[Rfam]
RNA sequence: GGGAUGUGACAGGGGCGCCCGACAUCGGGCUGAGAUAGCACCCUUUGAACCUGAACCAGUUAAUACUGGCGGAGGGAGUCGCGGUUUCGGUCCC
Dot-bracket structure: .....(((((((((.((((((....))))).......)..)))).....(((...((((......))))...)))..)))))............